This 72-nucleotide RNA sequence from Demequina mangrovi belongs to the Rfam family "tRNA". Rfam describes the family as follows. Transfer RNA (tRNA) molecules are approximately 80 nucleotides in length. By type it is a transfer RNA.
RNA sequence: UGGGCUAUGGUGUAACUGGCAGCACGACGGUUUCUGGUUCCGUUAGUUGAGGUUCGAAUCCUUGUAGCCCAG
Numbered sequence: 001u002g003g004g005c006u007a008u009g010g011u012g013u014a015a016c017u018g019g020c021a022g023c024a025c026g027a028c029g030g031u032u033u034c035u036g037g038u039u040c041c042g043u044u045a046g047u048u049g050a051g052g053u054u055c056g057a058a059u060c061c062u063u064g065u066a067g068c069c070c071a072g
Stems, first nucleotide, its partner, number of pairs: 001071007010025004027043004048064005